[Rfam]
RNA: Glycine riboswitch aptamer
Organism: Duganella sp. Leaf126
RNA sequence: GAGUCUUGAUCGGGAGAGGGCAACCAGCGUUGCCGCCGAAGGGGCACUACCCAAAAACUCUCAGGCAAAAGGACCGGUCAAGGGGC
Numbered sequence: 001g002a003g004u005c006u007u008g009a010u011c012g013g014g015a016g017a018g019g020g021c022a023a024c025c026a027g028c029g030u031u032g033c034c035g036c037c038g039a040a041g042g043g044g045c046a047c048u049a050c051c052c053a054a055a056a057a058c059u060c061u062c063a064g065g066c067a068a069a070a071g072g073a074c075c076g077g078u079c080a081a082g083g084g085g086c
Base pairs, nucleotide, nucleotide: 006081007080008079009078010077011076012075013074020033021032022031023030035066036065037064038062039061042060043059044058048053